[Rfam]
RNA: Y RNA
RNA sequence: GGCUGGUUGGAGUGCAGAGGUGUUUACAAUUAAUCGAUCAGAACCAGUUACAAAUUUAUUGUUUCCUUCUCCACUCCUCCUGCUUCAGCUGACUAAGCCUAAG
Numbered sequence: 001g002g003c004u005g006g007u008u009g010g011a012g013u014g015c016a017g018a019g020g021u022g023u024u025u026a027c028a029a030u031u032a033a034u035c036g037a038u039c040a041g042a043a044c045c046a047g048u049u050a051c052a053a054a055u056u057u058a059u060u061g062u063u064u065c066c067u068u069c070u071c072c073a074c075u076c077c078u079c080c081u082g083c084u085u086c087a088g089c090u091g092a093c094u095a096a097g098c099c100u101a102a103g
Stems, first nucleotide, its partner, number of pairs: 001099003004095005010090001014086001016081002019078002022076001028064002032060002